[Rfam]
RNA sequence: CAAUGCAAUAGAGGUUGCGAUAAUCACAGAAUCUACUUGAGUACGCGAAUACAGUGAGAGUAUAUUUUAGGAUUACCGCCGAAACAAAUUUUCUUUCGUGAAGUUAAUUUGUUGGGAUGUAAGAGAAUAUCUUACAUACUGUCCUGGUCGUUCCCAGGGAGCGCUAUAUGAUUU
Numbered sequence: 001c002a003a004u005g006c007a008a009u010a011g012a013g014g015u016u017g018c019g020a021u022a023a024u025c026a027c028a029g030a031a032u033c034u035a036c037u038u039g040a041g042u043a044c045g046c047g048a049a050u051a052c053a054g055u056g057a058g059a060g061u062a063u064a065u066u067u068u069a070g071g072a073u074u075a076c077c078g079c080c081g082a083a084a085c086a087a088a089u090u091u092u093c094u095u096u097c098g099u100g101a102a103g104u105u106a107a108u109u110u111g112u113u114g115g116g117a118u119g120u121a122a123g124a125g126a127a128u129a130u131c132u133u134a135c136a137u138a139c140u141g142u143c144c145u146g147g148u149c150g151u152u153c154c155c156a157g158g159g160a161g162c163g164c165u166a167u168a169u170g171a172u173u174u
Stems, first nucleotide, its partner, number of pairs: 008167004017079003021075005031065002034062005083113008093103002114140002117137008142159006
Rfam assigns this 174-nucleotide sequence from Lactobacillus johnsonii to the family "Lysine riboswitch aptamer". A reference for the family is Mandal et al. (2003), "Riboswitches Control Fundamental Biochemical Pathways in Bacillus subtilis and Other Bacteria", Cell. It scores 84 bits against the family's covariance model.